[Rfam]
RNA: Pseudomonas sRNA P27
Organism: Metapseudomonas resinovorans
RNA sequence: CGGGUCUAACUCCUGGAUGUUACCGUUUCGUCCAGCCGGAGCCGGACGGCGUUUUGGUGUCUGAUUCGGUAAACGAAUCGGGAGCACCAUCUGCGUAGGCUCGGAAAUCGCUUCCCGGUUUGAGGCUUGCGCCGCCUACGGUCUUGGAUAGCCCCCGCCAGGCAGGGACCCCAAUACCUGGCGCGACGGACGAAUCCGCCGC
Dot-bracket structure: .((((((....((((........((...(((((.((....)).))))).))...(((((((((((((.......)))))))..))))))...(((..((((................((((((((((............))))))))))))))..)))))))...))))))............((.(((......))).)).
Numbered sequence: 001c002g003g004g005u006c007u008a009a010c011u012c013c014u015g016g017a018u019g020u021u022a023c024c025g026u027u028u029c030g031u032c033c034a035g036c037c038g039g040a041g042c043c044g045g046a047c048g049g050c051g052u053u054u055u056g057g058u059g060u061c062u063g064a065u066u067c068g069g070u071a072a073a074c075g076a077a078u079c080g081g082g083a084g085c086a087c088c089a090u091c092u093g094c095g096u097a098g099g100c101u102c103g104g105a106a107a108u109c110g111c112u113u114c115c116c117g118g119u120u121u122g123a124g125g126c127u128u129g130c131g132c133c134g135c136c137u138a139c140g141g142u143c144u145u146g147g148a149u150a151g152c153c154c155c156c157g158c159c160a161g162g163c164a165g166g167g168a169c170c171c172c173a174a175u176a177c178c179u180g181g182c183g184c185g186a187c188g189g190a191c192g193a194a195u196c197c198g199c200c201g202c
Stems, first nucleotide, its partner, number of pairs: 002171006012162004024051002029048005035042002055089006061081007093158003098153004118149010184201002187198003